[Rfam]
RNA sequence: UGGUCUGGCUCUGUGUGGAAGACUAGUGAUUUUGUUGUUCUGACUUCUAAAGGUGACAACAAAUCAUAGCCUGCCAUCCAGCCCAGAGCC
Number, nucleotide and partner (000 for none) at each position: 001u000002g089003g000004u087005c086006u085007g000008g084009c000010u000011c081012u080013g079014u000015g077016u076017g075018g074019a000020a072021g071022a000023c069024u068025a000026g067027u066028g065029a064030u063031u062032u061033u000034g060035u059036u058037g057038u056039u055040c000041u000042g000043a000044c000045u000046u000047c000048u000049a000050a000051a000052g000053g000054u000055g039056a038057c037058a036059a035060c034061a032062a031063a030064u029065c028066a027067u026068a024069g023070c000071c021072u020073g000074c018075c017076a016077u015078c000079c013080a012081g011082c000083c000084c008085a006086g005087a004088g000089c002090c000